[Rfam]
RNA sequence: GCUAGGCACUUACAACUGUUUGCAGAGGAAACUGAGACUCUGUACCCGUGGCUCAGUUUUCUUUGCAAAGGAGUAAGUGCUUUGC
Numbered sequence: 001g002c003u004a005g006g007c008a009c010u011u012a013c014a015a016c017u018g019u020u021u022g023c024a025g026a027g028g029a030a031a032c033u034g035a036g037a038c039u040c041u042g043u044a045c046c047c048g049u050g051g052c053u054c055a056g057u058u059u060u061c062u063u064u065g066c067a068a069a070g071g072a073g074u075a076a077g078u079g080c081u082u083u084g085c
Base pairs, nucleotide, nucleotide: 001085002084004082005081006080007079008078009077010076011075012074013073017071019069020068021067022066023065024064025063026062028060029059031057032056033055034054035053036052041050042049043048
About this RNA
mir-452 microRNA precursor family: an 85-nucleotide RNA sequence from Erinaceus europaeus. The family's consensus secondary structure was predicted with RNAalifold. A reference for the family is Jima et al. (2010), "Deep sequencing of the small RNA transcriptome of normal and malignant human B cells identifies hundreds of novel microRNAs", Blood. The source organism's lineage runs through Eukaryota, Sarcopterygii, Theria, Erinaceinae and Erinaceus.